This 544-nucleotide part of an RNA from Arcobacter caeni belongs to the Rfam family "Bacterial small subunit ribosomal RNA". The literature on the family includes a 2001 paper in Science by Yusupov et al., "Crystal structure of the ribosome at 5.5 A resolution". A search with the family's covariance model found it, with a score of 1538 bits. The base pairs follow the family's consensus structure, which is taken from published work.
RNA sequence: UUUAUGGAGAGUUUGAUCCUGGCUCAGAGUGAACGCUGGCGGCGUGCUUAACACAUGCAAGUCGAACGAGAACGGAUUAUAGCUUGCUAUAAUUGUCAGCUAAGUGGCGCACGGGUGAGUAAUAUAUAGGUAAUGUGCCCUAGAGAAGAGGAUAACAGUUGGAAACGACUGCUAAGACUCUAUAUGCCUUUAAGACAGAAGUCUGCAAGGGAAAUAUUUAUAGCUCUAGGAUCAGCCUGUACAGUAUCAGUUAGUUGGUGAGGUAAUGGCUCACCAAGACAAUGACACUUAACUGGUUUGAGAGGAUGAUCAGUCACACUGGAACUGAGACACGGUCCAGACUCCUACGGGAGGCAGCAGUGGGGAAUAUUGCACAAUGGACGAAAGUCUGAUGCAGCAACGCCGCGUGGAGGAUGACACAUUUCGGUGCGUAAACUCCUUUUAUAUGGGAAGAUAAUGACGGUACCAUAUGAAUAAGCACCGGCUAACUCCGUGCCAGCAGCCGCGGUAAUACGGAGGGUGCAAGCGUUACUCGGAAUCACUG
Numbered sequence: 001u002u003u004a005u006g007g008a009g010a011g012u013u014u015g016a017u018c019c020u021g022g023c024u025c026a027g028a029g030u031g032a033a034c035g036c037u038g039g040c041g042g043c044g045u046g047c048u049u050a051a052c053a054c055a056u057g058c059a060a061g062u063c064g065a066a067c068g069a070g071a072a073c074g075g076a077u078u079a080u081a082g083c084u085u086g087c088u089a090u091a092a093u094u095g096u097c098a099g100c101u102a103a104g105u106g107g108c109g110c111a112c113g114g115g116u117g118a119g120u121a122a123u124a125u126a127u128a129g130g131u132a133a134u135g136u137g138c139c140c141u142a143g144a145g146a147a148g149a150g151g152a153u154a155a156c157a158g159u160u161g162g163a164a165a166c167g168a169c170u171g172c173u174a175a176g177a178c179u180c181u182a183u184a185u186g187c188c189u190u191u192a193a194g195a196c197a198g199a200a201g202u203c204u205g206c207a208a209g210g211g212a213a214a215u216a217u218u219u220a221u222a223g224c225u226c227u228a229g230g231a232u233c234a235g236c237c238u239g240u241a242c243a244g245u246a247u248c249a250g251u252u253a254g255u256u257g258g259u260g261a262g263g264u265a266a267u268g269g270c271u272c273a274c275c276a277a278g279a280c281a282a283u284g285a286c287a288c289u290u291a292a293c294u295g296g297u298u299u300g301a302g303a304g305g306a307u308g309a310u311c312a313g314u315c316a317c318a319c320u321g322g323a324a325c326u327g328a329g330a331c332a333c334g335g336u337c338c339a340g341a342c343u344c345c346u347a348c349g350g351g352a353g354g355c356a357g358c359a360g361u362g363g364g365g366a367a368u369a370u371u372g373c374a375c376a377a378u379g380g381a382c383g384a385a386a387g388u389c390u391g392a393u394g395c396a397g398c399a400a401c402g403c404c405g406c407g408u409g410g411a412g413g414a415u416g417a418c419a420c421a422u423u424u425c426g427g428u429g430c431g432u433a434a435a436c437u438c439c440u441u442u443u444a445u446a447u448g449g450g451a452a453g454a455u456a457a458u459g460a461c462g463g464u465a466c467c468a469u470a471u472g473a474a475u476a477a478g479c480a481c482c483g484g485c486u487a488a489c490u491c492c493g494u495g496c497c498a499g500c501a502g503c504c505g506c507g508g509u510a511a512u513a514c515g516g517a518g519g520g521u522g523c524a525a526g527c528g529u530u531a532c533u534c535g536g537a538a539u540c541a542c543u544g
Stems, first nucleotide, its partner, number of pairs: 009025005027534004032530006039406006045399002047364001052362003056359003061108003066105002069101002076093007115317003125241007134234002139230007147181004156171006187210004193204004215222002243289003250280003255277008292314004296307004319340005342353004370396001372395003378391005409439004420429003444471006453461001478523005489518005499506002